[Rfam]
RNA sequence: CCUGCUCUAACGGGGUGCUGCGGAUGGAGAUCCAUCCUGCUGCUGAGAGGCUUUUGCGCCAACCCGAGGAACCUGAUCCGGUUAAGACCGGCGGAGGGAUUAGACGCGUGUCGCAA
Numbered sequence: 001c002c003u004g005c006u007c008u009a010a011c012g013g014g015g016u017g018c019u020g021c022g023g024a025u026g027g028a029g030a031u032c033c034a035u036c037c038u039g040c041u042g043c044u045g046a047g048a049g050g051c052u053u054u055u056g057c058g059c060c061a062a063c064c065c066g067a068g069g070a071a072c073c074u075g076a077u078c079c080g081g082u083u084a085a086g087a088c089c090g091g092c093g094g095a096g097g098g099a100u101u102a103g104a105c106g107c108g109u110g111u112c113g114c115a116a
Stems, first nucleotide, its partner, number of pairs: 006104005011066004017043002020040004050059002072097003078091004
About this RNA: Shown here is a 116-nucleotide RNA from Martelella alba, a member of the family "TPP riboswitch aptamer (THI element)". A search with the family's covariance model found it, with a score of 63 bits. From the family's description: Vitamin B(1) in its active form thiamin pyrophosphate (TPP) is an essential coenzyme that is synthesised by coupling of pyrimidine and thiazole moieties in bacteria.